Alphaproteobacteria transfer-messenger RNA: a 364-nucleotide RNA sequence. The family's consensus secondary structure is taken from published work. On this family, see Williams and Bartel, RNA 1996: "Phylogenetic analysis of tmRNA secondary structure". By type it is a non-coding RNA gene.
[Rfam]
RNA sequence: GGACUUUCUAAUUCACCCGUCUCUGCCUAUAUUCGGGCCGCUGCCUUGCGGCAGCUAUGGCGAUAAACGGCAUCGCAAUAAGCUCUUCGGACCCGGGGGCGGUACCCGGCGCCUCCACCAGAGCGCGUCAAUCGUGUGUCGAUGGCGCGUUCCGGCGGGGGCGAAAUAGGUUCGACGGGGAGUGUAAAGGGUGUUCUUUCGCUCGGCAUGGUUCCACCGUCAUCGGGCUAAACCUAUAGUUGCCAACGACAACUAUGCUCCGGUUGCCCUUGCCGCGUAAUGCGGUAAUGGUACCGAUUCAAAGCCCUUGGGGUUAGCCCCUCAAGGCGGGGUUCGGAGGCACCUGGCAACAGAAGCCUCCACU
Numbered sequence: 001g002g003a004c005u006u007u008c009u010a011a012u013u014c015a016c017c018c019g020u021c022u023c024u025g026c027c028u029a030u031a032u033u034c035g036g037g038c039c040g041c042u043g044c045c046u047u048g049c050g051g052c053a054g055c056u057a058u059g060g061c062g063a064u065a066a067a068c069g070g071c072a073u074c075g076c077a078a079u080a081a082g083c084u085c086u087u088c089g090g091a092c093c094c095g096g097g098g099g100c101g102g103u104a105c106c107c108g109g110c111g112c113c114u115c116c117a118c119c120a121g122a123g124c125g126c127g128u129c130a131a132u133c134g135u136g137u138g139u140c141g142a143u144g145g146c147g148c149g150u151u152c153c154g155g156c157g158g159g160g161g162c163g164a165a166a167u168a169g170g171u172u173c174g175a176c177g178g179g180g181a182g183u184g185u186a187a188a189g190g191g192u193g194u195u196c197u198u199u200c201g202c203u204c205g206g207c208a209u210g211g212u213u214c215c216a217c218c219g220u221c222a223u224c225g226g227g228c229u230a231a232a233c234c235u236a237u238a239g240u241u242g243c244c245a246a247c248g249a250c251a252a253c254u255a256u257g258c259u260c261c262g263g264u265u266g267c268c269c270u271u272g273c274c275g276c277g278u279a280a281u282g283c284g285g286u287a288a289u290g291g292u293a294c295c296g297a298u299u300c301a302a303a304g305c306c307c308u309u310g311g312g313g314u315u316a317g318c319c320c321c322u323c324a325a326g327g328c329g330g331g332g333u334u335c336g337g338a339g340g341c342a343c344c345u346g347g348c349a350a351c352a353g354a355a356g357c358c359u360c361c362a363c364u
Base pairs, nucleotide, nucleotide: 040055041054042053043052044051059203060202061201062200063199069196070195071193072192073191074190083182084181085180087178088177089176093109094108095107096106097105110163111162112161113160114159115158116157204219205218206217209230210229211228213227214226215225330345331344332343333342336361337360338359339358340357341356